[Rfam]
RNA sequence: ACGCCUGGAUUUUAUAAGAGGAUGAGAACCUCCGAAGGAGGUUUGAGCCGAGCGCAGCGAGACCACGUUGCUUUAGCAACGGCCCGUAGGGCAAGCAUCGCAGAUGCGUAUAAUCCUCUCUCGCCGACCA
Numbered sequence: 001a002c003g004c005c006u007g008g009a010u011u012u013u014a015u016a017a018g019a020g021g022a023u024g025a026g027a028a029c030c031u032c033c034g035a036a037g038g039a040g041g042u043u044u045g046a047g048c049c050g051a052g053c054g055c056a057g058c059g060a061g062a063c064c065a066c067g068u069u070g071c072u073u074u075a076g077c078a079a080c081g082g083c084c085c086g087u088a089g090g091g092c093a094a095g096c097a098u099c100g101c102a103g104a105u106g107c108g109u110a111u112a113a114u115c116c117u118c119u120c121u122c123g124c125c126g127a128c129c130a
Stems, first nucleotide, its partner, number of pairs: 017119005023113001034092001042088001044086002049059002066081006